[Rfam]
RNA sequence: GGUCGUGAACUGUGGGGACUAUAGUCUCCCCCUUCAGAUCCGGCCCGGCAACGUGGCUACGGCUGCGAAAUUUAUACGACGAAGGAG
Numbered sequence: 001g002g003u004c005g006u007g008a009a010c011u012g013u014g015g016g017g018a019c020u021a022u023a024g025u026c027u028c029c030c031c032c033u034u035c036a037g038a039u040c041c042g043g044c045c046c047g048g049c050a051a052c053g054u055g056g057c058u059a060c061g062g063c064u065g066c067g068a069a070a071u072u073u074a075u076a077c078g079a080c081g082a083a084g085g086a087g
Stems, first nucleotide, its partner, number of pairs: 003043003007040002010037003014033004
Rfam assigns this 87-nucleotide sequence to the family "L20-Deltaproteobacteria ribosomal protein leader". It is annotated as a cis-regulatory leader. The sequence is in the family's curated seed alignment. Pairs were carried over by alignment from the consensus structure, which is taken from published work.